[Rfam]
RNA sequence: GGCAGAUGAUGUCUUUUCUCACAAUGGUCUGCAGAUACCACUGUGGGCUGAAAAUGCCAAGCGUUCAGCUGAUGCCAGGAG
Numbered sequence: 001g002g003c004a005g006a007u008g009a010u011g012u013c014u015u016u017u018c019u020c021a022c023a024a025u026g027g028u029c030u031g032c033a034g035a036u037a038c039c040a041c042u043g044u045g046g047g048c049u050g051a052a053a054a055u056g057c058c059a060a061g062c063g064u065u066c067a068g069c070u071g072a073u074g075c076c077a078g079g080a081g
Stems, first nucleotide, its partner, number of pairs: 001076004
Shown here is an 81-nucleotide RNA sequence from Sciurus carolinensis, a member of the family "Small nucleolar RNA SNORD35". Rfam's curators write: U35 is a C/D box snoRNA located in intron 6 of ribosomal protein L13A and intron 3 of ribosomal protein S11 in humans and at homologous positions in mouse and chicken ribosomal protein genes. U35 guides the methylation of 2'-O-ribose sites in 28S rRNA. The base pairs follow the family's consensus structure, which was predicted with PFOLD. On this family, see Nicoloso et al., J Mol Biol 1996: "Intron-encoded, antisense small nucleolar RNAs: the characterization of nine novel species points to their direct role as guides for the 2'-O-ribose methylation of rRNAs". Rfam classes the family as a C/D-box small nucleolar RNA. A search with the family's covariance model found it, with a score of 70 bits. Its Rfam clan is "SNORD35 clan". The source organism's lineage runs through Eukaryota, Vertebrata, Dipnotetrapodomorpha, Sciurinae and Sciurus.